[Rfam]
Shown here is a 65-nucleotide RNA from Lactobacillus pasteurii, a member of the family "emrB-Lactobacillus RNA".

RNA sequence: UACUCAGUAUAAGGAAUGACUCUUAUACAUCCUAAUAUAGUUAGCAAUAACUAAAGAAAGAGUAG
Dot-bracket structure: .((((.(((((((........))))))).........((((((....))))))......))))..
The family's RNA type in Rfam is small RNA. The source organism's lineage runs through Bacteria, Bacillota, Lactobacillales, Lactobacillaceae and Lactobacillus pasteurii.